[Rfam]
Description
Shown here is a 65-nucleotide RNA sequence from Crotophaga sulcirostris, a member of the family "Selenocysteine insertion sequence 1". For this family Rfam cites "A novel RNA structural motif in the selenocysteine insertion element of eukaryotic selenoprotein mRNAs" (Walczak et al., RNA, 1996). The match comes from Rfam's covariance-model search (38 bits). From the family's description: The incorporation of selenocysteine into a protein sequence is directed by an in-frame UGA codon (usually a stop codon) within the coding region of the mRNA. Selenoprotein mRNAs contain a conserved secondary structure in the 3' UTR that is required for the distinction of UGA stop from UGA selenocysteine. Rfam classes the family as a cis-regulatory element. The source organism's lineage runs through Eukaryota, Opisthokonta, Vertebrata, Neognathae and Crotophaga. The base pairs follow the family's consensus structure, which is taken from published work.
RNA sequence: CAGCCCUCAUGACGGUCUGCCUUCAAACCAGCCUGCUGGUGAGGCAGCCCUGAAGAUCUGGCGUG
Numbered sequence: 001c002a003g004c005c006c007u008c009a010u011g012a013c014g015g016u017c018u019g020c021c022u023u024c025a026a027a028c029c030a031g032c033c034u035g036c037u038g039g040u041g042a043g044g045c046a047g048c049c050c051u052g053a054a055g056a057u058c059u060g061g062c063g064u065g
Base pairs, nucleotide, nucleotide: 001065002064005061014050015049017047018046019045020044021043022042023041029038030037031036